Shown here is a 195-nucleotide RNA from Gymnodraco acuticeps, a member of the family "Small nucleolar RNA SNORA74". Its Rfam clan is "SNORA74 clan". Rfam's curators write: U19 belongs to the H/ACA class of snoRNAs. snoRNAs bind a number of proteins (including dyskerin, Gar1p and Nop10p in the case of the H/ACA class) to form snoRNP complexes. This class are thought to guide the sites of modification of uridines to pseudouridines by forming direct base pairing interactions with substrate RNAs. Targets may include ribosomal and spliceosomal RNAs but the exact functions of many snoRNAs, including U19, are not confirmed. Co-precipitation of U19 snoRNA with RNase MRP RNA suggests that U19 may be involved in pre-rRNA processing.
RNA sequence: CCCAGCACUCAGUCAGCUGACAGGCUGUGUGUCUGCCUCGGUGUUACAGUGCUGGCAGAGAAAGGCUCUGUGCUGCUCUCAGUGUGCAGACUCUGUUUUAGAGGCUGUUGCUGCUGAGCGGCUGCAGAGCCGGGCCCCACGAGAGUGGCCUGUCCUGCACCCACGCAGGGCCGGCCUAGUGCGGGGCCGCACACC
Numbered sequence: 001c002c003c004a005g006c007a008c009u010c011a012g013u014c015a016g017c018u019g020a021c022a023g024g025c026u027g028u029g030u031g032u033c034u035g036c037c038u039c040g041g042u043g044u045u046a047c048a049g050u051g052c053u054g055g056c057a058g059a060g061a062a063a064g065g066c067u068c069u070g071u072g073c074u075g076c077u078c079u080c081a082g083u084g085u086g087c088a089g090a091c092u093c094u095g096u097u098u099u100a101g102a103g104g105c106u107g108u109u110g111c112u113g114c115u116g117a118g119c120g121g122c123u124g125c126a127g128a129g130c131c132g133g134g135c136c137c138c139a140c141g142a143g144a145g146u147g148g149c150c151u152g153u154c155c156u157g158c159a160c161c162c163a164c165g166c167a168g169g170g171c172c173g174g175c176c177u178a179g180u181g182c183g184g185g186g187c188c189g190c191a192c193a194c195c
Stems, first nucleotide, its partner, number of pairs: 002055008012047002016042005021035005065130008074120005080113005087107003091103004132190001133188006147176003152171006
The family has 24 seed sequences and 1,348 matches in Rfam 15.1. By type it is an H/ACA-box small nucleolar RNA. It scores 76 bits against the family's covariance model.